[Rfam]
RNA: sRNA-Xcc1
RNA sequence: GGUCGGGUGGAGAGGCGUAAUACAAUACCCGUAAGGGGAAUAUGCCCAGAGCUUCUUGUAAGGCUCAGUUGACACCCGACCAACCAGCU
Numbered sequence: 001g002g003u004c005g006g007g008u009g010g011a012g013a014g015g016c017g018u019a020a021u022a023c024a025a026u027a028c029c030c031g032u033a034a035g036g037g038g039a040a041u042a043u044g045c046c047c048a049g050a051g052c053u054u055c056u057u058g059u060a061a062g063g064c065u066c067a068g069u070u071g072a073c074a075c076c077c078g079a080c081c082a083a084c085c086a087g088c089u
Base pairs, nucleotide, nucleotide: 001081002080003079004078005077006076007075008074009073014046015045016044018042019041028037029036030035049066050065051064052063053062054061